[Rfam]
RNA sequence: CGCCAUCAUCAAGAGAAGGGCUGGCGCCCUCGCCAACCUGCCUGACCGGGCAAGGUGGUCUCCGCAGAGGGAUGUGGCCGAAGCUGUGCUUCCGGCAACCAAGCGGUUGAAU
Number, nucleotide and partner (000 for none) at each position: 001c000002g000003c000004c000005a000006u000007c074008a073009u072010c071011a000012a000013g000014a000015g031016a000017a030018g029019g028020g027021c026022u000023g000024g000025c000026g021027c020028c019029c018030u017031c015032g059033c058034c057035a000036a000037c055038c054039u053040g051041c050042c049043u000044g108045a107046c106047c105048g104049g042050g041051c040052a000053a039054g038055g037056u000057g034058g033059u032060c000061u000062c000063c000064g000065c000066a000067g000068a000069g000070g000071g010072a009073u008074g007075u000076g000077g096078c095079c094080g093081a000082a000083g000084c000085u000086g000087u000088g000089c000090u000091u000092c000093c080094g079095g078096c077097a000098a000099c000100c000101a000102a000103g000104c048105g047106g046107u045108u044109g000110a000111a000112u000
This 112-nucleotide RNA sequence from Pannonibacter tanglangensis belongs to the Rfam family "SAM-I/IV (S-adenosyl methionine) riboswitch aptamer". For this family Rfam cites "The aptamer core of SAM-IV riboswitches mimics the ligand-binding site of SAM-I riboswitches" (Weinberg et al., RNA, 2008). The match comes from Rfam's covariance-model search (65 bits). Clan: SAM clan.